[Rfam]
RNA sequence: CUGCACGAUGCUAACCCCGGGCUUGUCGGAUGGAUCUCGAUCCUCUGAAGAAGGAAGCCCCAAAGCCUGUGCUAGAUCCACCGUGCCAUUCAGUGUUGCAGGCCAGGACACCACGCGUGAUUGAUUGGCCUGUGUCAGAGUAAUGGAGACAUGC
Numbered sequence: 001c002u003g004c005a006c007g008a009u010g011c012u013a014a015c016c017c018c019g020g021g022c023u024u025g026u027c028g029g030a031u032g033g034a035u036c037u038c039g040a041u042c043c044u045c046u047g048a049a050g051a052a053g054g055a056a057g058c059c060c061c062a063a064a065g066c067c068u069g070u071g072c073u074a075g076a077u078c079c080a081c082c083g084u085g086c087c088a089u090u091c092a093g094u095g096u097u098g099c100a101g102g103c104c105a106g107g108a109c110a111c112c113a114c115g116c117g118u119g120a121u122u123g124a125u126u127g128g129c130c131u132g133u134g135u136c137a138g139a140g141u142a143a144u145g146g147a148g149a150c151a152u153g154c
Stems, first nucleotide, its partner, number of pairs: 003072005010066002019060005024054001026051002086146005094137002097134006104123002
RNA: small nucleolar RNA snoR134
Organism: Brachypodium distachyon